[Rfam]
RNA sequence: CUUCCAUCGGGGAGAGAAGACCCCGUGGAGUUUUACUGCAGCUUGUGCUUGCGGUAUAGUUGACAUUGCAUAGUGUAUCUGGUAGCCAUGCUUAACAUCCUCCGGGGUGUUAAGAAGCGCCGUUGUAACACCAGACCUUGUUUGCAGUAUCGCUUAUCAGGUGAAGACCUGAGACACGUGCAGGUGGGCAGUUCGGCUGGGGCGGCACCCCUUUGAAAAGAUAUCAAAGGGGCCCAAAGUUCAGCUCAAACGGGUCAGAAAUCCGUUGAAGAGGGCAAAGCCAAAAGCUGGAUUGACUGGAUCUCCAAACGCACGGGAUCCAGAGACGAAAGUCGGGCUUAGCGAUCCUUCGUGUGCCCACUAUUGGGGCCCGGAGGUGACAGAAAAAUUACCCCAGGGAUAACAGGCUCGUCGCGGGCGAGAGCUCCUAUCGACCCCGCGGUUUGGUACCUCGAUGUCGGCUUUUCCUAUCCUGGUCCUGCAGCAGGGGCCAAGGGUGAGGCUGCUCGCCUAUUAAAAGGGAACAUGAGCUGGGUUUAGACCGUCGUGAGACAGGUCGGUCUCUGCCUGAUGGAAGUGU
Numbered sequence: 001c002u003u004c005c006a007u008c009g010g011g012g013a014g015a016g017a018a019g020a021c022c023c024c025g026u027g028g029a030g031u032u033u034u035a036c037u038g039c040a041g042c043u044u045g046u047g048c049u050u051g052c053g054g055u056a057u058a059g060u061u062g063a064c065a066u067u068g069c070a071u072a073g074u075g076u077a078u079c080u081g082g083u084a085g086c087c088a089u090g091c092u093u094a095a096c097a098u099c100c101u102c103c104g105g106g107g108u109g110u111u112a113a114g115a116a117g118c119g120c121c122g123u124u125g126u127a128a129c130a131c132c133a134g135a136c137c138u139u140g141u142u143u144g145c146a147g148u149a150u151c152g153c154u155u156a157u158c159a160g161g162u163g164a165a166g167a168c169c170u171g172a173g174a175c176a177c178g179u180g181c182a183g184g185u186g187g188g189c190a191g192u193u194c195g196g197c198u199g200g201g202g203c204g205g206c207a208c209c210c211c212u213u214u215g216a217a218a219a220g221a222u223a224u225c226a227a228a229g230g231g232g233c234c235c236a237a238a239g240u241u242c243a244g245c246u247c248a249a250a251c252g253g254g255u256c257a258g259a260a261a262u263c264c265g266u267u268g269a270a271g272a273g274g275g276c277a278a279a280g281c282c283a284a285a286a287g288c289u290g291g292a293u294u295g296a297c298u299g300g301a302u303c304u305c306c307a308a309a310c311g312c313a314c315g316g317g318a319u320c321c322a323g324a325g326a327c328g329a330a331a332g333u334c335g336g337g338c339u340u341a342g343c344g345a346u347c348c349u350u351c352g353u354g355u356g357c358c359c360a361c362u363a364u365u366g367g368g369g370c371c372c373g374g375a376g377g378u379g380a381c382a383g384a385a386a387a388a389u390u391a392c393c394c395c396a397g398g399g400a401u402a403a404c405a406g407g408c409u410c411g412u413c414g415c416g417g418g419c420g421a422g423a424g425c426u427c428c429u430a431u432c433g434a435c436c437c438c439g440c441g442g443u444u445u446g447g448u449a450c451c452u453c454g455a456u457g458u459c460g461g462c463u464u465u466u467c468c469u470a471u472c473c474u475g476g477u478c479c480u481g482c483a484g485c486a487g488g489g490g491c492c493a494a495g496g497g498u499g500a501g502g503c504u505g506c507u508c509g510c511c512u513a514u515u516a517a518a519a520g521g522g523a524a525c526a527u528g529a530g531c532u533g534g535g536u537u538u539a540g541a542c543c544g545u546c547g548u549g550a551g552a553c554a555g556g557u558c559g560g561u562c563u564c565u566g567c568c569u570g571a572u573g574g575a576a577g578u579g580u
Stems, first nucleotide, its partner, number of pairs: 001577008010569003014564002022398002025395001027394002029390005035192004042184007051153007059145002062142004068136001078135005085118002096109005157172004195208001196206003209231006234337002240292006246272002249267006273282002297323009325334001327332001348376005354371001356370004407448003411445001412442007422432002459534001460532004464526001465523005472497002476491005500512004540558004544553003